[Rfam]
RNA sequence: ACUAUGCACUAAGUAUAAGUGUAUUAGGUAAUAUUAUAUAUAUUCGAUAUAAUAUUACCUAAUACACUUAUACUUAGUGCAUAGU
Numbered sequence: 001a002c003u004a005u006g007c008a009c010u011a012a013g014u015a016u017a018a019g020u021g022u023a024u025u026a027g028g029u030a031a032u033a034u035u036a037u038a039u040a041u042a043u044u045c046g047a048u049a050u051a052a053u054a055u056u057a058c059c060u061a062a063u064a065c066a067c068u069u070a071u072a073c074u075u076a077g078u079g080c081a082u083a084g085u
Stems, first nucleotide, its partner, number of pairs: 001085007010076010024062011
Dot-bracket structure: (((((((..((((((((((....(((((((((((.................)))))))))))....))))))))))..)))))))